S15-Flavobacteria ribosomal protein leader: a 65-nucleotide RNA.
The base pairs follow the family's consensus structure, which is taken from published work.
Its Rfam clan is "Ribosomal Protein S15 Leader clan".
Rfam's curators put it in the seed alignment.
RNA sequence: UAUAUUUGCAGCCUGAUUGAAAAUCAAUCAAAUACAUAAUAAUCAUUUACAACAAUAUUAGCAUG
Numbered sequence: 001u002a003u004a005u006u007u008g009c010a011g012c013c014u015g016a017u018u019g020a021a022a023a024u025c026a027a028u029c030a031a032a033u034a035c036a037u038a039a040u041a042a043u044c045a046u047u048u049a050c051a052a053c054a055a056u057a058u059u060a061g062c063a064u065g
Stems, first nucleotide, its partner, number of pairs: 014030006
Dot-bracket structure: .............((((((.....))))))...................................